[Rfam]
RNA sequence: CUUCCGCCCUCCCCGCACAGGAGGGCGGGAUCGAGGCCCUCCGGCGCUCUCUGCCCUGACUGCGCCCCGGGGUCUCCGGCCGGUCCCGUCGGCCGCGGGGAACCGCACACUCCGCGGACGCGGCGGACCGGUACAAGCUCCGGGCUGCGGUGCCGGACAGGUUGAGGGUCCUGUCCCGGCGC
Numbered sequence: 001c002u003u004c005c006g007c008c009c010u011c012c013c014c015g016c017a018c019a020g021g022a023g024g025g026c027g028g029g030a031u032c033g034a035g036g037c038c039c040u041c042c043g044g045c046g047c048u049c050u051c052u053g054c055c056c057u058g059a060c061u062g063c064g065c066c067c068c069g070g071g072g073u074c075u076c077c078g079g080c081c082g083g084u085c086c087c088g089u090c091g092g093c094c095g096c097g098g099g100g101a102a103c104c105g106c107a108c109a110c111u112c113c114g115c116g117g118a119c120g121c122g123g124c125g126g127a128c129c130g131g132u133a134c135a136a137g138c139u140c141c142g143g144g145c146u147g148c149g150g151u152g153c154c155g156g157a158c159a160g161g162u163u164g165a166g167g168g169u170c171c172u173g174u175c176c177c178g179g180c181g182c
Stems, first nucleotide, its partner, number of pairs: 003030002005027002008024005033076004039072001041070004046063002048059002080131007089123003137151003141147002155176007
RNA: Streptomyces sRNA scr5239
Organism: Streptomyces sp. Ru87